[Rfam]
The family of this 66-nucleotide sequence is "potC RNA". Pairs were carried over by alignment from the consensus structure, which is taken from published work.
RNA sequence: UUUUUGGAGCCCAUAUUCUUCUUGUUAGCAUUUUUUUGCUAACAAAAAGAAUAUGGGCUCCAAAAA
Number, nucleotide and partner (000 for none) at each position: 001u000002u000003u000004u000005u000006g061007g060008a059009g058010c057011c056012c055013a054014u053015a052016u000017u050018c049019u000020u000021c000022u000023u000024g000025u000026u041027a040028g039029c038030a037031u000032u000033u000034u000035u000036u000037u030038g029039c028040u027041a026042a000043c000044a000045a000046a000047a000048a000049g018050a017051a000052u015053a014054u013055g012056g011057g010058c009059u008060c007061c006062a000063a000064a000065a000066a000